[Rfam]
RNA sequence: UAUUAAAAAUUUCAUUAAGUUCUACUGUUAAAAACUGGGGUGACUUAUGAAAUAAUCAAACAAUUAUAUAUGACGUGCCACAUGUACCUCAUGUCGAGAUACUUGGACCAGUUUUCAACAAUAGAAAUAAAUAAAAUUUUUAACA
Numbered sequence: 001u002a003u004u005a006a007a008a009a010u011u012u013c014a015u016u017a018a019g020u021u022c023u024a025c026u027g028u029u030a031a032a033a034a035c036u037g038g039g040g041u042g043a044c045u046u047a048u049g050a051a052a053u054a055a056u057c058a059a060a061c062a063a064u065u066a067u068a069u070a071u072g073a074c075g076u077g078c079c080a081c082a083u084g085u086a087c088c089u090c091a092u093g094u095c096g097a098g099a100u101a102c103u104u105g106g107a108c109c110a111g112u113u114u115u116c117a118a119c120a121a122u123a124g125a126a127a128u129a130a131a132u133a134a135a136a137u138u139u140u141u142a143a144c145a
Base pairs, nucleotide, nucleotide: 003143004142005141006140007139008138009137010136011135012134014132015131016130018128020126021125022124023123024122026120028118029117031115032114033113
This 145-nucleotide RNA from Gossypium anomalum belongs to the Rfam family "MIR7502 microRNA precursor family". Pairs were carried over by alignment from the consensus structure, which was predicted with RNAalifold. It scores 96 bits against the family's covariance model. Rfam links the family to the GO terms RISC complex and miRNA-mediated post-transcriptional gene silencing.